A member of the RNA family "FMN riboswitch aptamer (RFN element)" from Peptoniphilus sp. BV3C26, 114 nucleotides long. It scores 106 bits against the family's covariance model. Lineage of the source: Bacteria > Bacillati > Tissierellales > Peptoniphilaceae > Peptoniphilus. The family's consensus secondary structure is taken from published work.

RNA sequence: UUAAAUCUUCAGGGCGAGGUGUAAUUCCUCACCGGCGGUAAAGUCCGCGAGCAUUUGCAUGAAUCGGUGAAAUUCCGAUACCGACGGUUAUAGUCCGGAUGAAAGAAGUAAUAU
Numbered sequence: 001u002u003a004a005a006u007c008u009u010c011a012g013g014g015c016g017a018g019g020u021g022u023a024a025u026u027c028c029u030c031a032c033c034g035g036c037g038g039u040a041a042a043g044u045c046c047g048c049g050a051g052c053a054u055u056u057g058c059a060u061g062a063a064u065c066g067g068u069g070a071a072a073u074u075c076c077g078a079u080a081c082c083g084a085c086g087g088u089u090a091u092a093g094u095c096c097g098g099a100u101g102a103a104a105g106a107a108g109u110a111a112u113a114u
Base pairs, nucleotide, nucleotide: 003112007108008107009106010105017029018028019027031094032093033083034082035048036047037046038045043081044080063079064078065077066076067075085097086096087095